[Rfam]
RNA sequence: UGGCUUGGUUUCCUGGGGGGUGGGCUCAGCAUACCCUACCUCCCCUCAGCCAAGCCUAGAGCAGAGAGGCCAGGGCAUCCUCCCUGUGGGAGAGGCAUUCAAGUAAGGGGCCUCGCCUGGGCUGUCCAAGCCUCACAUUG
Numbered sequence: 001u002g003g004c005u006u007g008g009u010u011u012c013c014u015g016g017g018g019g020g021u022g023g024g025c026u027c028a029g030c031a032u033a034c035c036c037u038a039c040c041u042c043c044c045c046u047c048a049g050c051c052a053a054g055c056c057u058a059g060a061g062c063a064g065a066g067a068g069g070c071c072a073g074g075g076c077a078u079c080c081u082c083c084c085u086g087u088g089g090g091a092g093a094g095g096c097a098u099u100c101a102a103g104u105a106a107g108g109g110g111c112c113u114c115g116c117c118u119g120g121g122c123u124g125u126c127c128a129a130g131c132c133u134c135a136c137a138u139u140g
Stems, first nucleotide, its partner, number of pairs: 002056006015044010066134005073127002078121003088113003
Shown here is a 140-nucleotide RNA from Otolemur garnettii, a member of the family "Small Cajal body specific RNA 21". The base pairs follow the family's consensus structure, which was predicted with RNAalifold. Rfam 15.1 lists 278 matches to the family in 138 species. Rfam's curators write: scaRNAs are a specific class of small nuclear RNAs which localise to the Cajal bodies and guide the modification of RNA polymerase II transcribed spliceosomal RNAs U1, U2, U4, U5 and U12. ACA68 (SCARNA21) is a member of the H/ACA class of snoRNAs that guide the sites of modification of uridines to pseudouridines. The source organism's lineage runs through Eukaryota, Chordata, Craniata, Amniota and Otolemur. The match comes from Rfam's covariance-model search (144 bits).